Rfam assigns this 46-nucleotide sequence from Salmo salar to the family "Histone 3' UTR stem-loop".
[Rfam]
RNA sequence: CCAAAGGCUCUUAUAAGAGCCAUCCACAUUGCAAAAAUAGUAUUCU
Numbered sequence: 001c002c003a004a005a006g007g008c009u010c011u012u013a014u015a016a017g018a019g020c021c022a023u024c025c026a027c028a029u030u031g032c033a034a035a036a037a038u039a040g041u042a043u044u045c046u
Stems, first nucleotide, its partner, number of pairs: 006021006
Overview:
Pairs were carried over by alignment from the consensus structure, which is taken from published work. It scores 39 bits against the family's covariance model. The source organism's lineage runs through Eukaryota, Opisthokonta, Gnathostomata, Clupeocephala and Salmo.